[Rfam]
RNA sequence: CAGCCAAGCUAGGGGUGCCUGUGAAUGCAGGCUGAGAUAGUCCCUUAGAACCUGAGACUGGGUAAUACCAGCGGAGGGAAGCUGUUUAUCUGAGGA
Numbered sequence: 001c002a003g004c005c006a007a008g009c010u011a012g013g014g015g016u017g018c019c020u021g022u023g024a025a026u027g028c029a030g031g032c033u034g035a036g037a038u039a040g041u042c043c044c045u046u047a048g049a050a051c052c053u054g055a056g057a058c059u060g061g062g063u064a065a066u067a068c069c070a071g072c073g074g075a076g077g078g079a080a081g082c083u084g085u086u087u088a089u090c091u092g093a094g095g096a
Stems, first nucleotide, its partner, number of pairs: 007083004011045004016039001017032005051077003058071004
RNA: TPP riboswitch aptamer (THI element)
Organism: Leptolyngbya sp. FACHB-321